[Rfam]
RNA sequence: AGGCAACCUCCUUCUGAAUACUUAAAUGAGAAGUGAGGUGUUAAUCUGGUCGGAAAUCGAUCUCUUUAGCUCUUUCAGAUUUUUCUGAGGCUUAAUGCUUUUGAAGUUGGUCUAGCAAGCAAAAGGACAUU
Numbered sequence: 001a002g003g004c005a006a007c008c009u010c011c012u013u014c015u016g017a018a019u020a021c022u023u024a025a026a027u028g029a030g031a032a033g034u035g036a037g038g039u040g041u042u043a044a045u046c047u048g049g050u051c052g053g054a055a056a057u058c059g060a061u062c063u064c065u066u067u068a069g070c071u072c073u074u075u076c077a078g079a080u081u082u083u084u085c086u087g088a089g090g091c092u093u094a095a096u097g098c099u100u101u102u103g104a105a106g107u108u109g110g111u112c113u114a115g116c117a118a119g120c121a122a123a124a125g126g127a128c129a130u131u
Stems, first nucleotide, its partner, number of pairs: 002042004007038002009035001011033005017027001064125003069120003077113005085106002089099003
Shown here is a 131-nucleotide RNA from Cynara cardunculus, a member of the family "Small nucleolar RNA snoR77". Rfam links the family to the GO terms nucleolus and RNA processing. It is annotated as an H/ACA-box small nucleolar RNA. Taxonomically the source falls in Cynara cardunculus subsp. cardunculus (Eukaryota, Viridiplantae, Pentapetalae, Asteraceae). Pairs were carried over by alignment from the consensus structure, which was predicted with WAR.